[Rfam]
RNA: Y RNA
RNA sequence: GGCUGGUCUGAGUGCAGUUGUGUUUAAAACUAAUUGAUUACAGCCAAUUACUAUCCCUUUGUUCCUUCUCCACUCUCCACUCCCACUGCUUCACUUGACUAGCUUGGA
Numbered sequence: 001g002g003c004u005g006g007u008c009u010g011a012g013u014g015c016a017g018u019u020g021u022g023u024u025u026a027a028a029a030c031u032a033a034u035u036g037a038u039u040a041c042a043g044c045c046a047a048u049u050a051c052u053a054u055c056c057c058u059u060u061g062u063u064c065c066u067u068c069u070c071c072a073c074u075c076u077c078c079a080c081u082c083c084c085a086c087u088g089c090u091u092c093a094c095u096u097g098a099c100u101a102g103c104u105u106g107g108a
Base pairs, nucleotide, nucleotide: 001104002103003102004101005100006099007098008097010096011095014092016087017086018085020083022082032066